Small nucleolar RNA SNORD116: a 94-nucleotide RNA from Nannospalax galili.
A reference for the family is Cavaille et al. (2000), "Identification of brain-specific and imprinted small nucleolar RNA genes exhibiting an unusual genomic organization", Proc Natl Acad Sci U S A.
The match comes from Rfam's covariance-model search (87 bits).
NCBI's taxonomy places the organism under Eukaryota, Theria, Spalacidae, Spalacinae, Nannospalax.

RNA sequence: GGAUCGAUGAUGAUUCCAAGUCAAACAUUCCUUCGAAAAGCUGAAUAAAAUGAUUGAAAACUCCCUACCAUUUCUCUCAUCAUAAUUGAGGUCC
Numbered sequence: 001g002g003a004u005c006g007a008u009g010a011u012g013a014u015u016c017c018a019a020g021u022c023a024a025a026c027a028u029u030c031c032u033u034c035g036a037a038a039a040g041c042u043g044a045a046u047a048a049a050a051u052g053a054u055u056g057a058a059a060a061c062u063c064c065c066u067a068c069c070a071u072u073u074c075u076c077u078c079a080u081c082a083u084a085a086u087u088g089a090g091g092u093c094c
Stems, first nucleotide, its partner, number of pairs: 001094005026056002029053002032048002
Description
Rfam links the family to the GO terms nucleolus and RNA processing. It is annotated as a C/D-box small nucleolar RNA. Rfam 15.1 lists 3,260 matches to the family in 170 species.